[Rfam]
RNA sequence: AUUGCAUCCAUGAUGUUACUUUACAAACUGCGUUAUCUAUCUUAACUUUCCUUCGAAAGGGAUUGAAGAUAAUUUUCUAUACUGAGAUCCGGU
Numbered sequence: 001a002u003u004g005c006a007u008c009c010a011u012g013a014u015g016u017u018a019c020u021u022u023a024c025a026a027a028c029u030g031c032g033u034u035a036u037c038u039a040u041c042u043u044a045a046c047u048u049u050c051c052u053u054c055g056a057a058a059g060g061g062a063u064u065g066a067a068g069a070u071a072a073u074u075u076u077c078u079a080u081a082c083u084g085a086g087a088u089c090c091g092g093u
Base pairs, nucleotide, nucleotide: 001093002092003091004090006088007087
A member of the RNA family "Small nucleolar RNA snoR27" from Hibiscus syriacus, 93 nucleotides long. The base pairs follow the family's consensus structure, which was predicted with WAR. The family has 6 seed sequences and 649 matches in Rfam 15.1.